[Rfam]
RNA sequence: AGCACUGUGUUUAAACCUGUGGAUGAGAAUUUUCCCCAUUCUUGGUUAUGCUGUAGUGCCAAAAAAUCCCUGCCUCUUCCUUGCUGCACAGCUGACUUUGCGUCAUUCUGCUGUUGCUACGUGGAGUUGAGGAACAUAA
Numbered sequence: 001a002g003c004a005c006u007g008u009g010u011u012u013a014a015a016c017c018u019g020u021g022g023a024u025g026a027g028a029a030u031u032u033u034c035c036c037c038a039u040u041c042u043u044g045g046u047u048a049u050g051c052u053g054u055a056g057u058g059c060c061a062a063a064a065a066a067u068c069c070c071u072g073c074c075u076c077u078u079c080c081u082u083g084c085u086g087c088a089c090a091g092c093u094g095a096c097u098u099u100g101c102g103u104c105a106u107u108c109u110g111c112u113g114u115u116g117c118u119a120c121g122u123g124g125a126g127u128u129g130a131g132g133a134a135c136a137u138a139a
Base pairs, nucleotide, nucleotide: 002059003058004057005056006055007054008053009052014047015046016045017044021041022040023039024038025037027035067134069132070131071130072128074126075125076124077123082121083120086117087116088115089113090112091111092110094108095107
Rfam assigns this 139-nucleotide sequence from Camelus dromedarius to the family "Small nucleolar RNA SNORA46". Pairs were carried over by alignment from the consensus structure, which was predicted with RNAfold. From the family's description: ACA46 is a member of the H/ACA class of snoRNA that guide the sites of modification of uridines to pseudouridines.